[Rfam]
RNA sequence: GUGACAGAAGAGAGUGAGCACAAAUGGUGUUUUCUUGCAUGAAUUGUUCAUGCUUGAAGCUAUGUGUGCUCACCCUCUUCCUGUCAC
Numbered sequence: 001g002u003g004a005c006a007g008a009a010g011a012g013a014g015u016g017a018g019c020a021c022a023a024a025u026g027g028u029g030u031u032u033u034c035u036u037g038c039a040u041g042a043a044u045u046g047u048u049c050a051u052g053c054u055u056g057a058a059g060c061u062a063u064g065u066g067u068g069c070u071c072a073c074c075c076u077c078u079u080c081c082u083g084u085c086a087c
Base pairs, nucleotide, nucleotide: 001087002086003085004084005083006082007081009079010077011076012075014073015072016071017070018069019068020067021066024063025062
The record is an 87-nucleotide RNA from Salvia splendens, which matches "mir-156 microRNA precursor family" in Rfam. The match comes from Rfam's covariance-model search (80 bits). Its family is annotated with miRNA-mediated post-transcriptional gene silencing and RISC complex in the Gene Ontology. For this family Rfam cites "MicroRNAs in plants" (Reinhart et al., Genes Dev, 2002). This family represents the plant microRNA (miRNA) precursor mir-156.